The family of this 121-nucleotide sequence from Streptococcus criceti is "DUF3800-I RNA".
RNA sequence: UAUAACCACAGGUUAUCUAACACUGUCUAACAAUUAGAGAUGAUUAAAGCAAUUAAGCGUAUGUUAAGUACGUCAUCCUGAUUGGGGCCUCCUAUUUAUUAUGGGAGGUUUUUUUGAUAAU
Numbered sequence: 001u002a003u004a005a006c007c008a009c010a011g012g013u014u015a016u017c018u019a020a021c022a023c024u025g026u027c028u029a030a031c032a033a034u035u036a037g038a039g040a041u042g043a044u045u046a047a048a049g050c051a052a053u054u055a056a057g058c059g060u061a062u063g064u065u066a067a068g069u070a071c072g073u074c075a076u077c078c079u080g081a082u083u084g085g086g087g088c089c090u091c092c093u094a095u096u097u098a099u100u101a102u103g104g105g106a107g108g109u110u111u112u113u114u115u116g117a118u119a120a121u
Base pairs, nucleotide, nucleotide: 008026009025010024011023012021013020014019031084032083033082034081035080036079039077040076041075042074043053044052045051057073058072059071060070061069062068085111086110087109088108089107090106091105092104093103094102
The base pairs follow the family's consensus structure, which is taken from published work. From the family's description: Actinobacteria, Firmicutes, Fusobacteria, Proteobacteria (1 example), Tenericutes (2 examples). The source organism's lineage runs through Bacteria, Bacillota, Bacilli, Streptococcaceae and Streptococcus criceti.